[Rfam]
RNA sequence: GCAUUUCUCAAGCGAGCCUGAGAUAGUGGAAGUCGGGUGAAAUAAAGUAUGAACGGGCGCUUUCGGUAAAUUUUAGUCCUUGAUGUUAUCUUAAGGCUAUAUUAACAAUGAAGUAAUAAACUAGGGUGGAACCGCGUUUUGACG
Numbered sequence: 001g002c003a004u005u006u007c008u009c010a011a012g013c014g015a016g017c018c019u020g021a022g023a024u025a026g027u028g029g030a031a032g033u034c035g036g037g038u039g040a041a042a043u044a045a046a047g048u049a050u051g052a053a054c055g056g057g058c059g060c061u062u063u064c065g066g067u068a069a070a071u072u073u074u075a076g077u078c079c080u081u082g083a084u085g086u087u088a089u090c091u092u093a094a095g096g097c098u099a100u101a102u103u104a105a106c107a108a109u110g111a112a113g114u115a116a117u118a119a120a121c122u123a124g125g126g127u128g129g130a131a132c133c134g135c136g137u138u139u140u141g142a143c144g
Stems, first nucleotide, its partner, number of pairs: 001135002004131004008126002016067003022064002025061004032054002038049002071113005
The record is a 144-nucleotide RNA from Streptococcus intermedius, which matches "Streptococcus sRNA SpR19" in Rfam. Pairs were carried over by alignment from the consensus structure, which was predicted with mfold. On this family, see Mann et al., PLoS Pathog 2012: "Control of virulence by small RNAs in Streptococcus pneumoniae". Rfam's curators put it in the seed alignment. The source organism's lineage runs through Bacteria, Bacilli, Streptococcaceae, Streptococcus and Streptococcus intermedius.